[Rfam]
RNA: mir-3473 microRNA precursor family
Organism: Jaculus jaculus
RNA sequence: ACUGCUAAGCCAUCUCUCCAGCCCUUAAUUACUUGUGGUAAAAAAUAUAUAUAUCAGGGCUGGAGAGAUGGCUUAGCAGU
Number, nucleotide and partner (000 for none) at each position: 001a000002c079003u078004g077005c076006u075007a074008a073009g072010c071011c070012a069013u068014c067015u066016c065017u064018c063019c062020a061021g060022c059023c058024c057025u000026u000027a000028a000029u000030u000031a000032c000033u000034u000035g000036u000037g000038g000039u000040a000041a000042a000043a000044a000045a000046u000047a000048u000049a000050u000051a000052u000053a000054u000055c000056a000057g024058g023059g022060c021061u020062g019063g018064a017065g016066a015067g014068a013069u012070g011071g010072c009073u008074u007075a006076g005077c004078a003079g002080u000